[Rfam]
The record is a 95-nucleotide RNA from Salinisphaera orenii, which matches "c-di-GMP-I-GGC riboswitch aptamer" in Rfam.
RNA sequence: CAUGACAAGGGCAAACCUGUCGAAAGGCAGUGACGCAAAGCCACGGAUCUAAAGCACGCGGGACACCGCGGGUCACGACCGCCGGGCUGCCGUUG
Numbered sequence: 001c002a003u004g005a006c007a008a009g010g011g012c013a014a015a016c017c018u019g020u021c022g023a024a025a026g027g028c029a030g031u032g033a034c035g036c037a038a039a040g041c042c043a044c045g046g047a048u049c050u051a052a053a054g055c056a057c058g059c060g061g062g063a064c065a066c067c068g069c070g071g072g073u074c075a076c077g078a079c080c081g082c083c084g085g086g087c088u089g090c091c092g093u094u095g
Stems, first nucleotide, its partner, number of pairs: 001095001003092002011036002017030005034081001039088004044084003048078002
A search with the family's covariance model found it, with a score of 64 bits.